Background: Pseudomonas rpsL leader: a 132-nucleotide RNA sequence from Pseudomonas guineae.
RNA sequence: UAGCGGGGCUUUGUCUUGACUGGGGCGGUGAGUCUCAUUAGACUCAUGCACCCCUAAAUUUGGCAGGGCACGUGCUCUGCCAUUUUGUUUAUGUAGGGUAAUAGCGUCGCAAGACAACAGUGGAGCUUAAGA
Dot-bracket structure: ...((((((...))))))...(((...((((..((....))..))))...))).......(((((((((....)))))))))................(...((((((....))).........)))..)..
Numbered sequence: 001u002a003g004c005g006g007g008g009c010u011u012u013g014u015c016u017u018g019a020c021u022g023g024g025g026c027g028g029u030g031a032g033u034c035u036c037a038u039u040a041g042a043c044u045c046a047u048g049c050a051c052c053c054c055u056a057a058a059u060u061u062g063g064c065a066g067g068g069c070a071c072g073u074g075c076u077c078u079g080c081c082a083u084u085u086u087g088u089u090u091a092u093g094u095a096g097g098g099u100a101a102u103a104g105c106g107u108c109g110c111a112a113g114a115c116a117a118c119a120g121u122g123g124a125g126c127u128u129a130a131g132a
Stems, first nucleotide, its partner, number of pairs: 004018006022053003028047004034041002061082009099130001103127003106115003
NCBI's taxonomy places the organism under Bacteria, Pseudomonadati, Pseudomonadales, Pseudomonadaceae, Pseudomonas.
The family's consensus secondary structure is taken from published work.
The literature on the family includes a 2010 paper in Genome Biol by Naville and Gautheret, "Premature terminator analysis sheds light on a hidden world of bacterial transcriptional attenuation".
By type it is a cis-regulatory leader.
The match comes from Rfam's covariance-model search (109 bits).